[Rfam]
RNA sequence: CCUCUGUGGCAGUGUGGUUAGCUGGUUGAGUAAAUCCUGUCAACCGCUGACUACACUACCUUAGAGU
Numbered sequence: 001c002c003u004c005u006g007u008g009g010c011a012g013u014g015u016g017g018u019u020a021g022c023u024g025g026u027u028g029a030g031u032a033a034a035u036c037c038u039g040u041c042a043a044c045c046g047c048u049g050a051c052u053a054c055a056c057u058a059c060c061u062u063a064g065a066g067u
Stems, first nucleotide, its partner, number of pairs: 002066004008060002011057011023046007

A member of the RNA family "mir-34 microRNA precursor family" from Lingula anatina, 67 nucleotides long.
Pairs were carried over by alignment from the consensus structure, which was predicted with RNAalifold.
NCBI's taxonomy places the organism under Eukaryota, Lingulida, Linguloidea, Lingulidae, Lingula.
The family is grouped with related families in Rfam's "mir-34 clan".